[Rfam]
RNA sequence: UCGGUCCCGGUUCACGUCGUCCGCACUCGGCGGAGACGACCCGGCGGCC
Numbered sequence: 001u002c003g004g005u006c007c008c009g010g011u012u013c014a015c016g017u018c019g020u021c022c023g024c025a026c027u028c029g030g031c032g033g034a035g036a037c038g039a040c041c042c043g044g045c046g047g048c049c
Base pairs, nucleotide, nucleotide: 003049004048005047007044008043009042010041015038016037017036018035020034021033022032023031
Record summary: A member of the RNA family "L31-Actinobacteria ribosomal protein leader" from Nocardioides sp. LS1, 49 nucleotides long. A reference for the family is Eckert and Weinberg (2020), "Discovery of 20 novel ribosomal leader candidates in bacteria and archaea", BMC Microbiol. NCBI's taxonomy places the organism under Bacteria, Bacillati, Actinomycetota, Nocardioidaceae, Nocardioides.